Annotation: This 121-nucleotide RNA sequence from Myotis myotis belongs to the Rfam family "Small nucleolar RNA SNORA32". Rfam links the family to the GO terms nucleolus and RNA processing. ACA32 is a member of the H/ACA class of snoRNA that guide the sites of modification of uridines to pseudouridines. A search with the family's covariance model found it, with a score of 64 bits. Taxonomically the source falls in Myotis (Eukaryota, Metazoa, Deuterostomia, Amniota).

RNA sequence: AUGUUGUGACCCAACCAUAAAAUUAUUUUCAUUGCCUGUGGACAUGACCACAAAACAUUUCCCCAAUAGGUUUUUUUUCUGCUAUGUUGGUAGCAUAGCAUUCAGCCUACUGGGAACAUUU
Numbered sequence: 001a002u003g004u005u006g007u008g009a010c011c012c013a014a015c016c017a018u019a020a021a022a023u024u025a026u027u028u029u030c031a032u033u034g035c036c037u038g039u040g041g042a043c044a045u046g047a048c049c050a051c052a053a054a055a056c057a058u059u060u061c062c063c064c065a066a067u068a069g070g071u072u073u074u075u076u077u078u079c080u081g082c083u084a085u086g087u088u089g090g091u092a093g094c095a096u097a098g099c100a101u102u103c104a105g106c107c108u109a110c111u112g113g114g115a116a117c118a119u120u121u
Base pairs, nucleotide, nucleotide: 003048004047005046006045007044010041011040024034062114063113064112065111069107070106071105072104080100081099082098083097084096085095